[Rfam]
RNA: Ribosomal protein L20 leader
RNA sequence: GAGGAAAAGAAGAAGCACCCGCUUCUCGCCUGAUUGACGCAAGUUUGCAGUUGGCAGGUUUCGAAAUUCAUCACAUUCUAACUAUUCAUGCGAAUGUAAAGUGCGGGUCCUUUUUACGGCCUGCACUUUUCUUGUUUA
Numbered sequence: 001g002a003g004g005a006a007a008a009g010a011a012g013a014a015g016c017a018c019c020c021g022c023u024u025c026u027c028g029c030c031u032g033a034u035u036g037a038c039g040c041a042a043g044u045u046u047g048c049a050g051u052u053g054g055c056a057g058g059u060u061u062c063g064a065a066a067u068u069c070a071u072c073a074c075a076u077u078c079u080a081a082c083u084a085u086u087c088a089u090g091c092g093a094a095u096g097u098a099a100a101g102u103g104c105g106g107g108u109c110c111u112u113u114u115u116a117c118g119g120c121c122u123g124c125a126c127u128u129u130u131c132u133u134g135u136u137u138a
Base pairs, nucleotide, nucleotide: 011026012025013024014023015022016021028059029058030057036052037051038050039048040047102125103124104123105122106121107120108119109118111116